[Rfam]
The family of this 137-nucleotide RNA from Merluccius polli is "Small nucleolar RNA SNORA8". Rfam 15.1 lists 1,490 matches to the family in 610 species. NCBI's taxonomy places the organism under Eukaryota, Teleostomi, Neopterygii, Neoteleostei, Merluccius. It scores 40 bits against the family's covariance model. Gene Ontology terms of the family: nucleolus and RNA processing. It is annotated as an H/ACA-box small nucleolar RNA. The base pairs follow the family's consensus structure, which was predicted with RNAfold. From the family's description: ACA8 is a member of the H/ACA class of snoRNA that guide the sites of modification of uridines to pseudouridines.
RNA sequence: AGCACUGUGGUAUCUGCAGCCUGUUGCGUCUUCAACUGGUUUGUUCAAAGUCGGUGCAAGAAUGACUCAGCAUUUGGCAUCGUUGGUCUCCUUACUGCUAGUGUUUUUGGAGUCCUGGUAUAUAUGCUGUGACACUG
Numbered sequence: 001a002g003c004a005c006u007g008u009g010g011u012a013u014c015u016g017c018a019g020c021c022u023g024u025u026g027c028g029u030c031u032u033c034a035a036c037u038g039g040u041u042u043g044u045u046c047a048a049a050g051u052c053g054g055u056g057c058a059a060g061a062a063u064g065a066c067u068c069a070g071c072a073u074u075u076g077g078c079a080u081c082g083u084u085g086g087u088c089u090c091c092u093u094a095c096u097g098c099u100a101g102u103g104u105u106u107u108u109g110g111a112g113u114c115c116u117g118g119u120a121u122a123u124a125u126g127c128u129g130u131g132a133c134a135c136u137g
Stems, first nucleotide, its partner, number of pairs: 002057006012051001014050002016044004021039001023036004061125001065121001067118004076105005